[Rfam]
RNA sequence: UUUGGCAUUCGGGUUAUCGACCAGAAUCUGGUUGCCGAUCGCAUGGAUCAGGUGAGUCUUGCCGAGCCCGACGCCGCCAUA
Numbered sequence: 001u002u003u004g005g006c007a008u009u010c011g012g013g014u015u016a017u018c019g020a021c022c023a024g025a026a027u028c029u030g031g032u033u034g035c036c037g038a039u040c041g042c043a044u045g046g047a048u049c050a051g052g053u054g055a056g057u058c059u060u061g062c063c064g065a066g067c068c069c070g071a072c073g074c075c076g077c078c079a080u081a
Stems, first nucleotide, its partner, number of pairs: 005042002009038004016032003020029001051078004056074002061072001063070001